[Rfam]
RNA sequence: UGGGCGGUAUCCUUUUUGGAGCUGCACCUAUAAAAAAUAGUUUUAUAUACAAAAAAAUUCUGCCUUGAUCCACUAGUGUGGACUGGGACAGAGGG
Numbered sequence: 001u002g003g004g005c006g007g008u009a010u011c012c013u014u015u016u017u018g019g020a021g022c023u024g025c026a027c028c029u030a031u032a033a034a035a036a037a038u039a040g041u042u043u044u045a046u047a048u049a050c051a052a053a054a055a056a057a058u059u060c061u062g063c064c065u066u067g068a069u070c071c072a073c074u075a076g077u078g079u080g081g082a083c084u085g086g087g088a089c090a091g092a093g094g095g
Base pairs, nucleotide, nucleotide: 002028003027004025005024006023007022008021010020011019060091061090062089063087064086065085067083069082070081071080072079073078
This 95-nucleotide sequence from Bacillus taeanensis belongs to the Rfam family "pan motif". The source organism's lineage runs through Bacteria, Bacillati, Bacillota, Caryophanales and Bacillus. It scores 66 bits against the family's covariance model. The family's RNA type in Rfam is cis-regulatory element.